pan motif: an 83-nucleotide sequence from Desulfosporosinus youngiae. A search with the family's covariance model found it, with a score of 65 bits. Rfam classes the family as a cis-regulatory element.

[Rfam]
RNA sequence: UGGGCAGUAUCAUUAGAACUGCACCUUUCAUUCCAGGAAUUUAAAUGGUACUGCCUGUAUCCGUUAUGGACCGGGACAGAGGG
Numbered sequence: 001u002g003g004g005c006a007g008u009a010u011c012a013u014u015a016g017a018a019c020u021g022c023a024c025c026u027u028u029c030a031u032u033c034c035a036g037g038a039a040u041u042u043a044a045a046u047g048g049u050a051c052u053g054c055c056u057g058u059a060u061c062c063g064u065u066a067u068g069g070a071c072c073g074g075g076a077c078a079g080a081g082g083g
Stems, first nucleotide, its partner, number of pairs: 002025002004022005010017002051079003054075004060070003